The family of this 123-nucleotide sequence from Salvator merianae is "Small nucleolar RNA SNORA26".
The organism belongs to Salvator, within Eukaryota.
The base pairs follow the family's consensus structure, which was predicted with RNAalifold.
Its family is annotated with RNA processing and nucleolus in the Gene Ontology.
The snoRNA HBI-6 belong to the H/ACA family of snoRNAs, guiding the pseudouridylation of position U4522 if the 28S rRNA. HBI-6 is the human orthologue of mouse MBI-6 snoRNA.
[Rfam]
RNA sequence: UUGCACCUCUAAGGCGAUUUGUGCUUUAGGAUGGUCAACACAGAGGGGUAGAGUAUUCCUCUCAUUAAAACCUGAGGCAGGCUGCGUGGUUUCUGCUUUUGGAUCCUGUCAUGAGAGACACUC
Numbered sequence: 001u002u003g004c005a006c007c008u009c010u011a012a013g014g015c016g017a018u019u020u021g022u023g024c025u026u027u028a029g030g031a032u033g034g035u036c037a038a039c040a041c042a043g044a045g046g047g048g049u050a051g052a053g054u055a056u057u058c059c060u061c062u063c064a065u066u067a068a069a070a071c072c073u074g075a076g077g078c079a080g081g082c083u084g085c086g087u088g089g090u091u092u093c094u095g096c097u098u099u100u101g102g103a104u105c106c107u108g109u110c111a112u113g114a115g116a117g118a119c120a121c122u123c
Stems, first nucleotide, its partner, number of pairs: 002050003006046005014039001019030001059117001061115005072102004076097003080093002084090002